The family of this 141-nucleotide RNA sequence from Neotoma lepida is "Small nucleolar RNA SNORD10".
RNA sequence: GCUCUGUGAUGAACCCCAUGCGUGUCAUCUGAGCCCAGCUUCCCUGUUGCCUUAGCCCAGGUAGUGUUCUACUUACCAGGGCUGUUGUCUGGCCUGGCAGGGAGGCCUUGGGCAAAGGAUCAGUCCUUAUAUUCUGAGAGC
Numbered sequence: 001g002c003u004c005u006g007u008g009a010u011g012a013a014c015c016c017c018a019u020g021c022g023u024g025u026c027a028u029c030u031g032a033g034c035c036c037a038g039c040u041u042c043c044c045u046g047u048u049g050c051c052u053u054a055g056c057c058c059a060g061g062u063a064g065u066g067u068u069c070u071a072c073u074u075a076c077c078a079g080g081g082c083u084g085u086u087g088u089c090u091g092g093c094c095u096g097g098c099a100g101g102g103a104g105g106c107c108u109u110g111g112g113c114a115a116a117g118g119a120u121c122a123g124u125c126c127u128u129a130u131a132u133u134c135u136g137a138g139a140g141c
Base pairs, nucleotide, nucleotide: 001141002140003139004138042102043101044100045099046098047097048096049095
Rfam 15.1 lists 433 matches to the family in 306 species. Pairs were carried over by alignment from the consensus structure, which was predicted with WAR. It is annotated as a C/D-box small nucleolar RNA. On this family, see Huttenhofer et al., EMBO J 2001: "RNomics: an experimental approach that identifies 201 candidates for novel, small, non-messenger RNAs in mouse".